Notes
A member of the RNA family "skipping-rope RNA" from Hungatella hathewayi, 100 nucleotides long. It is annotated as a small RNA.

RNA sequence: AUUGUUUGAGGUGGAAGAUUUCGUACCCGUCCACACGCCGAUGGCUUGACAGGGGGAAACCCCGAGAGAUGCAGGAGAUUUGGUACGCCUGCCAAACAAU
Numbered sequence: 001a002u003u004g005u006u007u008g009a010g011g012u013g014g015a016a017g018a019u020u021u022c023g024u025a026c027c028c029g030u031c032c033a034c035a036c037g038c039c040g041a042u043g044g045c046u047u048g049a050c051a052g053g054g055g056g057a058a059a060c061c062c063c064g065a066g067a068g069a070u071g072c073a074g075g076a077g078a079u080u081u082g083g084u085a086c087g088c089c090u091g092c093c094a095a096a097c098a099a100u
Stems, first nucleotide, its partner, number of pairs: 001100008011034005023086005036066001037045003071092005